[Rfam]
RNA sequence: AGUACCUUUAAAUCAGCCCUGUGAGGCUGGCAAGGUAGCGUGAAUAACAGAUCUGCCGCACGUAGAACAGGGCCUUAGCCUGAACCGCAUCCUGCUGGGAUAGCGGCGGUUAAGCUGACCCUCUAUGUACGGCUGGUCUCAGGCUCCUUGCGUUGUUAGCAAGGAGCUUUUUUUCGU
Numbered sequence: 001a002g003u004a005c006c007u008u009u010a011a012a013u014c015a016g017c018c019c020u021g022u023g024a025g026g027c028u029g030g031c032a033a034g035g036u037a038g039c040g041u042g043a044a045u046a047a048c049a050g051a052u053c054u055g056c057c058g059c060a061c062g063u064a065g066a067a068c069a070g071g072g073c074c075u076u077a078g079c080c081u082g083a084a085c086c087g088c089a090u091c092c093u094g095c096u097g098g099g100a101u102a103g104c105g106g107c108g109g110u111u112a113a114g115c116u117g118a119c120c121c122u123c124u125a126u127g128u129a130c131g132g133c134u135g136g137u138c139u140c141a142g143g144c145u146c147c148u149u150g151c152g153u154u155g156u157u158a159g160c161a162a163g164g165a166g167c168u169u170u171u172u173u174u175c176g177u
Stems, first nucleotide, its partner, number of pairs: 003037006013030006053135001055133004060128007141169011

Shown here is a 177-nucleotide RNA sequence from Paenibacillus catalpae, a member of the family "PyrR binding site".
From the family's description: This family represents the PyrR binding site and terminator structure.
The family's RNA type in Rfam is cis-regulatory element.
The family's consensus secondary structure is taken from published work.